[Rfam]
RNA sequence: CGUCUCCUCCAUGUCUCCUCCUGAUAUGGAUUCAACCCGCCUUUCGAGGCGGGUUUUUUUUU
Numbered sequence: 001c002g003u004c005u006c007c008u009c010c011a012u013g014u015c016u017c018c019u020c021c022u023g024a025u026a027u028g029g030a031u032u033c034a035a036c037c038c039g040c041c042u043u044u045c046g047a048g049g050c051g052g053g054u055u056u057u058u059u060u061u062u
Base pairs, nucleotide, nucleotide: 008030009029010028011027012026013025014024015023034055035054036053037052038051039050040049041048
Shown here is a 62-nucleotide sequence from Chitinasiproducens palmae, a member of the family "Betaproteobacteria toxic small RNA".
The family has 51 seed sequences and 951 matches in Rfam 15.1.
The literature on the family includes a 2012 paper in Genome Res by Kimelman et al., "A vast collection of microbial genes that are toxic to bacteria".
It scores 74 bits against the family's covariance model.
The family's consensus secondary structure was predicted with WAR.
Overexpression in amino aid rich medium attenuates growth, suggesting role in repressing amino acid intake and metabolism.